[Rfam]
A member of the RNA family "ffh sRNA" from Paracoccus suum, 52 nucleotides long. Lineage of the source: Bacteria > Pseudomonadati > Pseudomonadota > Paracoccaceae > Paracoccus. On this family, see Meyer et al., BMC Genomics 2009: "Identification of candidate structured RNAs in the marine organism 'Candidatus Pelagibacter ubique'". The family's RNA type in Rfam is small RNA. The match comes from Rfam's covariance-model search (67 bits).
RNA sequence: GCGGUCGGGGAUCGCCCCCCGUCAGCGCGAUGCGCCCACGGGGGCGUUCCUG
Numbered sequence: 001g002c003g004g005u006c007g008g009g010g011a012u013c014g015c016c017c018c019c020c021g022u023c024a025g026c027g028c029g030a031u032g033c034g035c036c037c038a039c040g041g042g043g044g045c046g047u048u049c050c051u052g
Stems, first nucleotide, its partner, number of pairs: 016044007025035004